A member of the RNA family "MIR1120/MIR1122 microRNA precursor family" from Triticum aestivum, 74 nucleotides long. Pairs were carried over by alignment from the consensus structure, which was predicted with RNAalifold. A reference for the family is Yao et al. (2007), "Cloning and characterization of microRNAs from wheat (Triticum aestivum L.)", Genome Biol.
RNA sequence: CUCUGUCCCAUAAUAUAAGAACGUUUUUGACACUAGUGUAGUGUUAAAAACGUUCUUAUAUUUUGGGACAGAGG
Numbered sequence: 001c002u003c004u005g006u007c008c009c010a011u012a013a014u015a016u017a018a019g020a021a022c023g024u025u026u027u028u029g030a031c032a033c034u035a036g037u038g039u040a041g042u043g044u045u046a047a048a049a050a051c052g053u054u055c056u057u058a059u060a061u062u063u064u065g066g067g068a069c070a071g072a073g074g
Stems, first nucleotide, its partner, number of pairs: 001073004006068005012062023